[Rfam]
RNA sequence: UGCUGACACGGAAAUGGUGUCUUCCGACUUAACCGCCCUGAAAAGCUGAUGGCGCCUGCAAAAUU
Numbered sequence: 001u002g003c004u005g006a007c008a009c010g011g012a013a014a015u016g017g018u019g020u021c022u023u024c025c026g027a028c029u030u031a032a033c034c035g036c037c038c039u040g041a042a043a044a045g046c047u048g049a050u051g052g053c054g055c056c057u058g059c060a061a062a063a064u065u
Base pairs, nucleotide, nucleotide: 010025011024012023013022016056017055018054019053020052021051035046036045
Shown here is a 65-nucleotide RNA sequence from Pedobacter cryoconitis, a member of the family "Fluoride riboswitch aptamer (crcB RNA motif)". Its family is annotated with positive regulation of gene expression and response to fluoride in the Gene Ontology.